[Rfam]
RNA: ZMP/ZTP riboswitch aptamer (pfl RNA motif)
Organism: Paenibacillus xylanivorans
RNA sequence: GGGAUCCGGUGUAACUGGCGACGAAGUGGGCACAACCACAAUGGAGCACCGGAACAAACGGCCGGUCGCCUGGGCAAAAGAG
Dot-bracket structure: ..(.((((((((..(.[[[[[....((((......))))...)..)))))))).).....(((..]]]]]..))).......